RNA sequence: UGACGUAGAUUAUGCUUUAGCUGCCUAAGAGCAGUAACAAGCACAGUCGUCCUAGCUGGUAACGGCUAGUGAGUAUUAUCGGGUGAAUUGCUGGAAAACCCUAAGAGCUUUUCUUACCACAAUGUAGUUGGAAACGACAAGCGUGAUGGUGUGAAAAAAGAAAAGAUUGGGCAAUCAGCAGCCAAGCUCCUGUCUCGAAAGAGUGGAGAAGGUUCAACGACUAGGAUAAACCAUCUAAGGCUUCGGCUAUGAUGAUGAAAUCCAUAGGUGAAACAAUGGUCAUCAGCAUUGUGAAUCCGAAGUGCCCGGCCCCUACUAGAAUGCUAGAGGGUGAAGAUAUAGUCUAGUCAUUUAUGAAAGUAAAUG
Numbered sequence: 001u002g003a004c005g006u007a008g009a010u011u012a013u014g015c016u017u018u019a020g021c022u023g024c025c026u027a028a029g030a031g032c033a034g035u036a037a038c039a040a041g042c043a044c045a046g047u048c049g050u051c052c053u054a055g056c057u058g059g060u061a062a063c064g065g066c067u068a069g070u071g072a073g074u075a076u077u078a079u080c081g082g083g084u085g086a087a088u089u090g091c092u093g094g095a096a097a098a099c100c101c102u103a104a105g106a107g108c109u110u111u112u113c114u115u116a117c118c119a120c121a122a123u124g125u126a127g128u129u130g131g132a133a134a135c136g137a138c139a140a141g142c143g144u145g146a147u148g149g150u151g152u153g154a155a156a157a158a159a160g161a162a163a164a165g166a167u168u169g170g171g172c173a174a175u176c177a178g179c180a181g182c183c184a185a186g187c188u189c190c191u192g193u194c195u196c197g198a199a200a201g202a203g204u205g206g207a208g209a210a211g212g213u214u215c216a217a218c219g220a221c222u223a224g225g226a227u228a229a230a231c232c233a234u235c236u237a238a239g240g241c242u243u244c245g246g247c248u249a250u251g252a253u254g255a256u257g258a259a260a261u262c263c264a265u266a267g268g269u270g271a272a273a274c275a276a277u278g279g280u281c282a283u284c285a286g287c288a289u290u291g292u293g294a295a296u297c298c299g300a301a302g303u304g305c306c307c308g309g310c311c312c313c314u315a316c317u318a319g320a321a322u323g324c325u326a327g328a329g330g331g332u333g334a335a336g337a338u339a340u341a342g343u344c345u346a347g348u349c350a351u352u353u354a355u356g357a358a359a360g361u362a363a364a365u366g
Stems, first nucleotide, its partner, number of pairs: 001028001003026001005024004032041001079309004084304002089180006099171003103167001181213002188206002194201002217345001219344005312331003316327004351364005